Notes:
This 192-nucleotide RNA sequence belongs to the Rfam family "RNA Staph. aureus D". The match comes from Rfam's covariance-model search (51 bits). A reference for the family is Geissmann et al. (2009), "A search for small noncoding RNAs in Staphylococcus aureus reveals a conserved sequence motif for regulation", Nucleic Acids Res.
RNA sequence: UUUUGAAAAAAAACCUUUUUUUUUUUUAAAAAAAAAAAAAACCUUUUUUUUUUUAAAAAAAAAAAAACAAAUUUUACUGGCAAUUAGGUCCGGACCUGAAAAACCCCGGUUUUGAUCCAGACCGGACCCGGAAUCCUUGAAUUUUAAGGACCGGGACCGAACCUGAAUCUACAGGUUCGGUUCCAGUUAGUU
Numbered sequence: 001u002u003u004u005g006a007a008a009a010a011a012a013a014c015c016u017u018u019u020u021u022u023u024u025u026u027u028a029a030a031a032a033a034a035a036a037a038a039a040a041a042c043c044u045u046u047u048u049u050u051u052u053u054u055a056a057a058a059a060a061a062a063a064a065a066a067a068c069a070a071a072u073u074u075u076a077c078u079g080g081c082a083a084u085u086a087g088g089u090c091c092g093g094a095c096c097u098g099a100a101a102a103a104c105c106c107c108g109g110u111u112u113u114g115a116u117c118c119a120g121a122c123c124g125g126a127c128c129c130g131g132a133a134u135c136c137u138u139g140a141a142u143u144u145u146a147a148g149g150a151c152c153g154g155g156a157c158c159g160a161a162c163c164u165g166a167a168u169c170u171a172c173a174g175g176u177u178c179g180g181u182u183c184c185a186g187u188u189a190g191u192u
Base pairs, nucleotide, nucleotide: 018038019037020036021035022034023033024032025031026030044071045070046069048067050065051064052063053062054061085125087123088122089121090120092118093117094116150187151186153184154183155182156181157180158179159178